The record is a 187-nucleotide sequence from Dicrurus megarhynchus, which matches "U2 spliceosomal RNA" in Rfam. Rfam classes the family as a spliceosomal small nuclear RNA. Gene Ontology terms of the family: mRNA branch site recognition, U2 snRNP and pre-mRNA branch point binding. About the family: U2 is a small nuclear RNA (snRNA) component of the spliceosome (involved in pre-mRNA splicing). NCBI's taxonomy places the organism under Eukaryota, Bilateria, Amniota, Coelurosauria, Dicrurus. A reference for the family is Zwieb (1997), "The uRNA database", Nucleic Acids Res. Pairs were carried over by alignment from the consensus structure, which is taken from published work.
[Rfam]
RNA sequence: CUCUAAUCUCUGAUCUUUGUCUAAGGUCAAGUUUAACAUCUGUUCAUAACAGUUAAAUAUCUUUUACAUCCUUGGCUUGAAGAUGUCAUAUUAAACAGACUUUUGGGCCAAGGGAUGGGUUAGAACUUUUUCUGUCUGUCCAAUGCACCUGCCUGUUACUGCAAUGUCUCUAGAAGCAGCACACCAA
Numbered sequence: 001c002u003c004u005a006a007u008c009u010c011u012g013a014u015c016u017u018u019g020u021c022u023a024a025g026g027u028c029a030a031g032u033u034u035a036a037c038a039u040c041u042g043u044u045c046a047u048a049a050c051a052g053u054u055a056a057a058u059a060u061c062u063u064u065u066a067c068a069u070c071c072u073u074g075g076c077u078u079g080a081a082g083a084u085g086u087c088a089u090a091u092u093a094a095a096c097a098g099a100c101u102u103u104u105g106g107g108c109c110a111a112g113g114g115a116u117g118g119g120u121u122a123g124a125a126c127u128u129u130u131u132c133u134g135u136c137u138g139u140c141c142a143a144u145g146c147a148c149c150u151g152c153c154u155g156u157u158a159c160u161g162c163a164a165u166g167u168c169u170c171u172a173g174a175a176g177c178a179g180c181a182c183a184c185c186a187a
Base pairs, nucleotide, nucleotide: 007026008025009024012021013020014019047066048065049064051062052061068084069083070082072080073079074078113141114140115139116138117137118136119135122133123132124131125130145180146179149176150175152173155170